[Rfam]
RNA sequence: GGGUCCAUAGCUCAGUGGUAGAGCAUUUGAGCUGCAUGUUUGAUUGCAAAUCUUAAGGUCAUCGGUUCGAACCCGGUUGGGCCCU
Numbered sequence: 001g002g003g004u005c006c007a008u009a010g011c012u013c014a015g016u017g018g019u020a021g022a023g024c025a026u027u028u029g030a031g032c033u034g035c036a037u038g039u040u041u042g043a044u045u046g047c048a049a050a051u052c053u054u055a056a057g058g059u060c061a062u063c064g065g066u067u068c069g070a071a072c073c074c075g076g077u078u079g080g081g082c083c084c085u
Stems, first nucleotide, its partner, number of pairs: 001084007010024004026055001029052001061077005

A member of the RNA family "tRNA" from Prunus persica, 85 nucleotides long. A search with the family's covariance model found it, with a score of 47 bits. The family's RNA type in Rfam is transfer RNA.